[Rfam]
RNA sequence: AGAGCAGGUUGCAAUUACAGUGCUUCAUCUUGUGGGAGUACUGCCAUUAGCCUGCUAAGAGUAAAGCUUCCACUACAUGCUGGUUUCACUUUUCUGUGGGUGGAAUCAUUGGUUGUUGGUAUCUACAAGU
Numbered sequence: 001a002g003a004g005c006a007g008g009u010u011g012c013a014a015u016u017a018c019a020g021u022g023c024u025u026c027a028u029c030u031u032g033u034g035g036g037a038g039u040a041c042u043g044c045c046a047u048u049a050g051c052c053u054g055c056u057a058a059g060a061g062u063a064a065a066g067c068u069u070c071c072a073c074u075a076c077a078u079g080c081u082g083g084u085u086u087c088a089c090u091u092u093u094c095u096g097u098g099g100g101u102g103g104a105a106u107c108a109u110u111g112g113u114u115g116u117u118g119g120u121a122u123c124u125a126c127a128a129g130u
Base pairs, nucleotide, nucleotide: 003056004055005054006053007052008051018043019042020041021040022039023038024037025036026035065124066123068121070119071118072117074115075114081108082107083106084105085104086103087102088101089100090099091098
RNA: Small nucleolar RNA SNORA69
Organism: Geotrypetes seraphini